[Rfam]
RNA sequence: GGCCUCCUGGUGCUUACCAUAAUCUAUGUUCCUACACUGACUGUAUAGAAAUAGGAGGCAGAGUAAACCUUUCCUAUAUGCAACUCAGUCCAGACCCUGUGCCUGAUCUGUACUGUGAAUGUAGGGACAUGG
Numbered sequence: 001g002g003c004c005u006c007c008u009g010g011u012g013c014u015u016a017c018c019a020u021a022a023u024c025u026a027u028g029u030u031c032c033u034a035c036a037c038u039g040a041c042u043g044u045a046u047a048g049a050a051a052u053a054g055g056a057g058g059c060a061g062a063g064u065a066a067a068c069c070u071u072u073c074c075u076a077u078a079u080g081c082a083a084c085u086c087a088g089u090c091c092a093g094a095c096c097c098u099g100u101g102c103c104u105g106a107u108c109u110g111u112a113c114u115g116u117g118a119a120u121g122u123a124g125g126g127a128c129a130u131g132g
Stems, first nucleotide, its partner, number of pairs: 002059007020043002027036003072124001075121003086110003091105003095101001